[Rfam]
RNA sequence: GUCACAGUAUCGUUAGAAAGAAUCAUAUUGCUGCCCCACUUCCGCCCAUCGCCCGCCCCGCUACCCUGCGACAAGGAAAUCCUGCGUUGGCCCGGUUCUUUCGGUUCCGGAUUCCUCAGCCCCCAGCCCCCCGGGGCCGUCGGAGCCGGGCCUGUUCGCAGGGGAGUUAACUCCCUUUUGACUGGGCCAACGAGAGUUGGUCCUUUU
Numbered sequence: 001g002u003c004a005c006a007g008u009a010u011c012g013u014u015a016g017a018a019a020g021a022a023u024c025a026u027a028u029u030g031c032u033g034c035c036c037c038a039c040u041u042c043c044g045c046c047c048a049u050c051g052c053c054c055g056c057c058c059c060g061c062u063a064c065c066c067u068g069c070g071a072c073a074a075g076g077a078a079a080u081c082c083u084g085c086g087u088u089g090g091c092c093c094g095g096u097u098c099u100u101u102c103g104g105u106u107c108c109g110g111a112u113u114c115c116u117c118a119g120c121c122c123c124c125a126g127c128c129c130c131c132c133g134g135g136g137c138c139g140u141c142g143g144a145g146c147c148g149g150g151c152c153u154g155u156u157c158g159c160a161g162g163g164g165a166g167u168u169a170a171c172u173c174c175c176u177u178u179u180g181a182c183u184g185g186g187c188c189a190a191c192g193a194g195a196g197u198u199g200g201u202c203c204u205u206u207u
Stems, first nucleotide, its partner, number of pairs: 037166001039051001081162006089152011102139009119127002184203008

This 207-nucleotide RNA sequence from Bradyrhizobium sp. Leo170 belongs to the Rfam family "Bradyrhizobiaceae sRNA BjrC174". The organism belongs to Bradyrhizobium, within Bacteria. A reference for the family is Madhugiri et al. (2012), "Small RNAs of the Bradyrhizobium/Rhodopseudomonas lineage and their analysis", RNA Biol. It is annotated as a small RNA. The base pairs follow the family's consensus structure.